[Rfam]
RNA sequence: GGGUGGCAGUGAACCCCAUCCGGCAACUAUUGCUCCAGCCGGAAGCGCUUGGGGCGGCUACUGGCGGCAACGCUGGUGGUCGAAGCCCCUGGGAAAAGGCUCGGAAAGCGGGUCAGCGAGCAAGCAGGCCGUAAUGCGA
Numbered sequence: 001g002g003g004u005g006g007c008a009g010u011g012a013a014c015c016c017c018a019u020c021c022g023g024c025a026a027c028u029a030u031u032g033c034u035c036c037a038g039c040c041g042g043a044a045g046c047g048c049u050u051g052g053g054g055c056g057g058c059u060a061c062u063g064g065c066g067g068c069a070a071c072g073c074u075g076g077u078g079g080u081c082g083a084a085g086c087c088c089c090u091g092g093g094a095a096a097a098g099g100c101u102c103g104g105a106a107a108g109c110g111g112g113u114c115a116g117c118g119a120g121c122a123a124g125c126a127g128g129c130c131g132u133a134a135u136g137c138g139a
Base pairs, nucleotide, nucleotide: 020042021041022040023039024038050091051090052089053088054087055082056081057080058079059078060077065072066071098114099113100112101111102110103109116132117131118130

The record is a 139-nucleotide sequence from Candidatus Methylacidiphilum fumarolicum, which matches "Group II catalytic intron D1-D4-4" in Rfam. Pairs were carried over by alignment from the consensus structure. Rfam's curators write: Group II introns are found in rRNA, tRNA and mRNA of organelles in fungi, plants and protists, and also in mRNA in bacteria. Rfam 15.1 lists 840 matches to the family in 506 species. NCBI's taxonomy places the organism under Bacteria, Pseudomonadati, Verrucomicrobiota, Methylacidiphilales, Candidatus Methylacidiphilum fumarolicum.